[Rfam]
RNA sequence: UUGAAUAAUUUGAAACUCCAUCUUGCAGACUUGUAGAAUUUGAAGACUUCAACUUGCACACUUGAAGAAUUUGAAGACUUCAACU
Numbered sequence: 001u002u003g004a005a006u007a008a009u010u011u012g013a014a015a016c017u018c019c020a021u022c023u024u025g026c027a028g029a030c031u032u033g034u035a036g037a038a039u040u041u042g043a044a045g046a047c048u049u050c051a052a053c054u055u056g057c058a059c060a061c062u063u064g065a066a067g068a069a070u071u072u073g074a075a076g077a078c079u080u081c082a083a084c085u
Stems, first nucleotide, its partner, number of pairs: 001083005009075006016067002019064002024058004031052003035048002
Notes:
The family of this 85-nucleotide RNA sequence from Solanum commersonii is "MIR8024 microRNA precursor family". Lineage of the source: Eukaryota > Euphyllophyta > Mesangiospermae > Solaneae > Solanum. The match comes from Rfam's covariance-model search (78 bits).